[Rfam]
Nucleotides: 111
Stems, first nucleotide, its partner, number of pairs: 004039006015032006041070002044067008073106001075104010086093001
Number, partner (000 for none) and nucleotide at each position: 001000a002000g003000a004039c005038c006037c007036u008035u009034u010000u011000a012000a013000u014000u015032u016031c017030a018029g019028u020027c021000c022000a023000g024000a025000g026000a027020g028019g029018c030017u031016g032015a033000c034009a035008a036007a037006g038005g039004g040000g041070a042069a043000u044067u045066g046065u047064c048063a049062u050061u051060a052000a053000u054000u055000g056000g057000u058000u059000u060051u061050a062049g063048u064047g065046g066045c067044a068000u069042u070041u071000c072000u073106g074000u075104a076103c077102c078101c079100c080099u081098u082097u083096g084095u085000g086093c087000c088000u089000u090000a091000u092000u093086g094000g095084a096083c097082g098081a099080a100079g101078g102077g103076g104075u105000u106073u107000u108000u109000a110000a111000u